This 117-nucleotide sequence from Gilliamella sp. Occ3-1 belongs to the Rfam family "Alpha operon ribosome binding site". A reference for the family is Schlax et al. (2001), "Translational repression of the Escherichia coli alpha operon mRNA: importance of an mRNA conformational switch and a ternary entrapment complex", J Biol Chem. The bacterial alpha operon ribosome binding site is surrounded by this complex pseudoknotted structure. Translation of the mRNA produces 4 ribosomal protein products, one of which (S4) acts as a translational repressor by binding to the nested pseudoknot region. Rfam classes the family as a cis-regulatory element. Its family is annotated with ribosome binding in the Gene Ontology.
[Rfam]
RNA sequence: UUGUAAAUUCACUGUUUGAGUAUCCUGAAAACGGGCUUUUCAGUAUGGUGAAUUUGCUAAACAUUAACAAUAAAGGAGUGCAUAGUGGCCCGUAUAGCAGGCAUUAACAUUCCUGAU
Number, nucleotide and partner (000 for none) at each position: 001u000002u000003g000004u056005a055006a054007a053008u052009u051010c050011a049012c048013u047014g000015u000016u000017u000018g000019a000020g000021u000022a000023u000024c101025c100026u099027g000028a000029a000030a000031a000032c092033g091034g090035g089036c000037u000038u000039u000040u116041c115042a114043g000044u000045a000046u000047g013048g012049u011050g010051a009052a008053u007054u006055u005056g004057c000058u000059a000060a000061a000062c000063a000064u000065u000066a000067a000068c000069a000070a000071u000072a000073a000074a000075g000076g000077a000078g000079u000080g000081c000082a000083u000084a000085g000086u000087g000088g000089c035090c034091c033092g032093u000094a000095u000096a000097g000098c000099a026100g025101g024102c000103a000104u000105u000106a000107a000108c000109a000110u000111u000112c000113c000114u042115g041116a040117u000